[Rfam]
RNA sequence: UCUGGCAGGACUGAACCACUCUGCCCUCACUGAGAACAAAGUUCGAAAUGAGAAUCUUUGUUAUGGACUCAAGUUCUGAGCCAGA
Numbered sequence: 001u002c003u004g005g006c007a008g009g010a011c012u013g014a015a016c017c018a019c020u021c022u023g024c025c026c027u028c029a030c031u032g033a034g035a036a037c038a039a040a041g042u043u044c045g046a047a048a049u050g051a052g053a054a055u056c057u058u059u060g061u062u063a064u065g066g067a068c069u070c071a072a073g074u075u076c077u078g079a080g081c082c083a084g085a
Stems, first nucleotide, its partner, number of pairs: 001085006